[Rfam]
RNA sequence: CCCGUCCGUCCCGUGGACGCCCUGACCGACCGCGGCCGUGCCGGGCUACCCUUGCCGGGUGCGUCUUCCACGGGAAGCCGCAAAGCCGACAGCCGUCGCACUCCAGGGAGCACCUUUAUG
Number, nucleotide and partner (000 for none) at each position: 001c000002c000003c000004g000005u000006c000007c000008g000009u000010c000011c000012c000013g000014u000015g000016g000017a000018c000019g000020c000021c000022c000023u000024g000025a000026c000027c000028g000029a000030c000031c000032g000033c000034g000035g000036c000037c000038g000039u000040g000041c000042c000043g000044g000045g000046c000047u000048a000049c000050c000051c000052u000053u000054g000055c000056c000057g000058g000059g000060u082061g081062c080063g079064u000065c077066u076067u075068c074069c000070a000071c000072g000073g000074g068075a067076a066077g065078c000079c063080g062081c061082a060083a000084a000085g099086c098087c000088g097089a096090c095091a000092g000093c000094c000095g090096u089097c088098g086099c085100a000101c000102u000103c000104c000105a000106g000107g000108g000109a000110g000111c000112a000113c000114c000115u000116u000117u000118a000119u000120g000
The record is a 120-nucleotide sequence from Streptomyces phyllanthi, which matches "Streptomyces-metH RNA" in Rfam. Taxonomically the source falls in Streptomyces (Bacteria, Bacillati, Actinomycetes, Kitasatosporales). By type it is a small RNA. The base pairs follow the family's consensus structure, which is taken from published work. A search with the family's covariance model found it, with a score of 107 bits.